[Rfam]
RNA sequence: UAAUCCCCUGCCACUUUACCAUUUGGUCAUUUGUCAUGUCCAUAAUGGUCAUUCAGGUAGGGAACAACAAUCAUCCUUAUAAAACGCAAGCAAAUUUUAUAUUUGACUUGUGUCCUGUCUGGGGAAACAGUU
Numbered sequence: 001u002a003a004u005c006c007c008c009u010g011c012c013a014c015u016u017u018a019c020c021a022u023u024u025g026g027u028c029a030u031u032u033g034u035c036a037u038g039u040c041c042a043u044a045a046u047g048g049u050c051a052u053u054c055a056g057g058u059a060g061g062g063a064a065c066a067a068c069a070a071u072c073a074u075c076c077u078u079a080u081a082a083a084a085c086g087c088a089a090g091c092a093a094a095u096u097u098u099a100u101a102u103u104u105g106a107c108u109u110g111u112g113u114c115c116u117g118u119c120u121g122g123g124g125a126a127a128c129a130g131u132u
Base pairs, nucleotide, nucleotide: 037064039062040061041060046055047054048053074125075124076123077122078121079120087110088108091105092104093103094102095101
Description
Small nucleolar RNA SNORA27: a 132-nucleotide sequence from Microcaecilia unicolor. The family's RNA type in Rfam is H/ACA-box small nucleolar RNA. Clan: SNORA27 clan. From the family's description: ACA27 is a member of the H/ACA class of snoRNA that guide the sites of modification of uridines to pseudouridines. The match comes from Rfam's covariance-model search (86 bits). The source organism's lineage runs through Eukaryota, Vertebrata, Amphibia, Siphonopidae and Microcaecilia.